[Rfam]
About this RNA
Shown here is a 75-nucleotide RNA from Leptobrachium leishanense, a member of the family "Small nucleolar RNA SNORD47". A reference for the family is Kiss-Laszlo et al. (1996), "Site-specific ribose methylation of preribosomal RNA: a novel function for small nucleolar RNAs", Cell. The match comes from Rfam's covariance-model search (59 bits). Lineage of the source: Eukaryota > Bilateria > Craniata > Amphibia > Leptobrachium. Its family is annotated with RNA processing and nucleolus in the Gene Ontology.

RNA sequence: GGCCAGUGAUGAAAAUGAUUCUGCCAUAUGAGUAAACCUGAACACAACCUUAACCGUUCCACUCUUUCUGAGGCC
Numbered sequence: 001g002g003c004c005a006g007u008g009a010u011g012a013a014a015a016u017g018a019u020u021c022u023g024c025c026a027u028a029u030g031a032g033u034a035a036a037c038c039u040g041a042a043c044a045c046a047a048c049c050u051u052a053a054c055c056g057u058u059c060c061a062c063u064c065u066u067u068c069u070g071a072g073g074c075c
Stems, first nucleotide, its partner, number of pairs: 001075004